[Rfam]
RNA sequence: UUGCUGUGAUGACAAUCUUAGGACACCUUUGGAUUAACCGUGAAAAGAAAUAUAUUCUGAGCAAU
Numbered sequence: 001u002u003g004c005u006g007u008g009a010u011g012a013c014a015a016u017c018u019u020a021g022g023a024c025a026c027c028u029u030u031g032g033a034u035u036a037a038c039c040g041u042g043a044a045a046a047g048a049a050a051u052a053u054a055u056u057c058u059g060a061g062c063a064a065u
Stems, first nucleotide, its partner, number of pairs: 001064004
The record is a 65-nucleotide RNA from Ornithorhynchus anatinus, which matches "Small nucleolar RNA SNORD58" in Rfam. Rfam describes the family as follows. snoRNA U58 is found in introns 1, 3 and 6 of the ribosomal protein RPL17 gene in humans. Pairs were carried over by alignment from the consensus structure, which was predicted with PFOLD. It is annotated as a C/D-box small nucleolar RNA. Its family is annotated with RNA processing and nucleolus in the Gene Ontology. Clan: SNORD58 clan.